Rfam assigns this 235-nucleotide RNA sequence from Nitrosomonas communis to the family "Group II catalytic intron D1-D4-6". On this family, see Lehmann and Schmidt, Crit Rev Biochem Mol Biol 2003: "Group II introns: structure and catalytic versatility of large natural ribozymes". It scores 68 bits against the family's covariance model. Group II introns are found in rRNA, tRNA and mRNA of organelles in fungi, plants and protists, and also in mRNA in bacteria. The source organism's lineage runs through Bacteria, Pseudomonadati, Pseudomonadota, Nitrosomonadaceae and Nitrosomonas. Rfam links the family to the GO term Group II intron splicing.
[Rfam]
RNA sequence: AAAGUCCCGUCCAAGGAAUUGUCCAUACGCCUUGGUAGCACGAAGGAGCGGCAUUCAAGUAAUUGAGUGACGUGAGUUUCUAAACGACAAAGAUGCAGGCCGUAACGCAAGUGAACCUAGAAGUAGCCUCGUAAACUAAAUGCGGUUGCCGACCUCGUGUCUGUAUAGGGAAGGCCGAAGUGAUAGUGUGCUGGUAAUGGAAGCCACACUAGCGAGCCGUCGGGGUAGCAGGGUC
Number, nucleotide and partner (000 for none) at each position: 001a000002a000003a000004g000005u000006c000007c000008c000009g000010u000011c000012c034013a033014a032015g031016g030017a000018a000019u025020u202021g000022u200023c199024c000025a019026u000027a000028c000029g000030c016031c015032u014033u013034g012035g000036u087037a000038g085039c000040a000041c000042g000043a000044a081045g080046g078047a077048g073049c072050g071051g000052c069053a068054u067055u066056c065057a064058a063059g000060u000061a000062a000063u058064u057065g056066a055067g054068u053069g052070a000071c050072g049073u048074g000075a000076g000077u047078u046079u000080c045081u044082a000083a000084a000085c038086g000087a036088c000089a000090a000091a000092g000093a000094u000095g000096c000097a000098g000099g000100c000101c000102g000103u000104a000105a000106c000107g000108c000109a000110a000111g000112u000113g000114a000115a000116c000117c000118u000119a000120g000121a000122a000123g229124u227125a000126g226127c225128c224129u223130c222131g221132u000133a000134a000135a000136c000137u000138a000139a000140a000141u000142g220143c219144g218145g217146u216147u215148g175149c174150c173151g000152a000153c169154c168155u167156c000157g000158u000159g000160u000161c000162u000163g000164u000165a000166u000167a155168g154169g153170g000171a000172a000173g150174g149175c148176c000177g000178a000179a000180g000181u000182g000183a000184u211185a210186g209187u208188g207189u206190g205191c000192u000193g000194g000195u000196a000197a000198u000199g023200g022201a000202a020203g000204c000205c190206a189207c188208a187209c186210u185211a184212g000213c000214g000215a147216g146217c145218c144219g143220u142221c131222g130223g129224g128225g127226u126227a124228g000229c123230a000231g000232g000233g000234u000235c000